A member of the RNA family "Alphaproteobacterial sRNA BjrC1505" from Chelativorans sp. BNC1, 141 nucleotides long.
On this family, see Madhugiri et al., RNA Biol 2012: "Small RNAs of the Bradyrhizobium/Rhodopseudomonas lineage and their analysis".
RNA sequence: AGUUCGUUAACUCCGGAUUAAGCUUUACAGGCGUUUACUGUGUGUAUCCAGAGAUCUGGAUUCUGACCGAGUGGCUGGAGCCAUUCUGUUUGACGCCUCCCUGUUAACUCCUGAGAGCCGCAGUCCCGCGGCUCUUUUUUU
Dot-bracket structure: ..............(...(((((.........)))))).......((((........)))).......((((((......)))))).....((((......)))).......(((((((((......))))))))).....